[Rfam]
RNA sequence: GAGACCUCGUCUCGUGUGUAUCAGAAAUGCACCGUACUCGCGUAGCUCGCGAGCAGCAACUCCGCUGGGAUGAGGAGAAAGG
Numbered sequence: 001g002a003g004a005c006c007u008c009g010u011c012u013c014g015u016g017u018g019u020a021u022c023a024g025a026a027a028u029g030c031a032c033c034g035u036a037c038u039c040g041c042g043u044a045g046c047u048c049g050c051g052a053g054c055a056g057c058a059a060c061u062c063c064g065c066u067g068g069g070a071u072g073a074g075g076a077g078a079a080a081g082g
Stems, first nucleotide, its partner, number of pairs: 005075008015034002018030004037053006054067004

The record is an 82-nucleotide sequence, which matches "RAGATH-10 RNA" in Rfam. It is one of the family's seed sequences. It is annotated as a small RNA.